[Rfam]
RNA sequence: CUGUGCUAGGCGGGGAGCUAGCGGUGCCCUGUACCCGCAAUCCGCUACAGCGGGGUCAAAUUCCUGCCCUAGGCCUUGAUGGGAGGAUCCCUGGUUUGCCGCUGGGGCGUUGAUAGCUGGGUCCUGCGUGGCGGAGACCUGUAAACCCCGCCAGAUCCGGAAGGAAGCAACGGUAUGCAGUAAGCUUCGGGUGCCGCAGGAGUGCCUGGUUAGAGUUUCAACGGCGAAACAAAUCCUGACGUUGGUGUCGAAGGCAGGUGCACGG
Numbered sequence: 001c002u003g004u005g006c007u008a009g010g011c012g013g014g015g016a017g018c019u020a021g022c023g024g025u026g027c028c029c030u031g032u033a034c035c036c037g038c039a040a041u042c043c044g045c046u047a048c049a050g051c052g053g054g055g056u057c058a059a060a061u062u063c064c065u066g067c068c069c070u071a072g073g074c075c076u077u078g079a080u081g082g083g084a085g086g087a088u089c090c091c092u093g094g095u096u097u098g099c100c101g102c103u104g105g106g107g108c109g110u111u112g113a114u115a116g117c118u119g120g121g122u123c124c125u126g127c128g129u130g131g132c133g134g135a136g137a138c139c140u141g142u143a144a145a146c147c148c149c150g151c152c153a154g155a156u157c158c159g160g161a162a163g164g165a166a167g168c169a170a171c172g173g174u175a176u177g178c179a180g181u182a183a184g185c186u187u188c189g190g191g192u193g194c195c196g197c198a199g200g201a202g203u204g205c206c207u208g209g210u211u212a213g214a215g216u217u218u219c220a221a222c223g224g225c226g227a228a229a230c231a232a233a234u235c236c237u238g239a240c241g242u243u244g245g246u247g248u249c250g251a252a253g254g255c256a257g258g259u260g261c262a263c264g265g
Stems, first nucleotide, its partner, number of pairs: 001265006009057003012030004017025003034054005063258006072249003076245001079242003084237005092231002095228006103220002106217003114212009123200006129191001132189005139180005148173003156165003
RNA: Bacterial large signal recognition particle RNA
Organism: SAR202 cluster bacterium AD-804-J14_MRT_500m